Iron response element I: a 35-nucleotide RNA from Myotis davidii. A search with the family's covariance model found it, with a score of 34 bits. The family's RNA type in Rfam is cis-regulatory element. A reference for the family is Zhang et al. (2001), "Repression of Manduca sexta ferritin synthesis by IRP1/IRE interaction", Insect Mol Biol.

Nucleotides: 035
Base pairs, nucleotide, nucleotide: 001035002034003033004032006031007030008029010028012027013026014025015024016023
Number, partner (000 for none) and nucleotide at each position: 001035c002034u003033g004032u005000c006031u007030c008029u009000u010028g011000c012027u013026c014025c015024a016023a017000c018000a019000a020000u021000a022000u023016u024015u025014g026013g027012a028010c029008a030007g031006a032004a033003c034002a035001g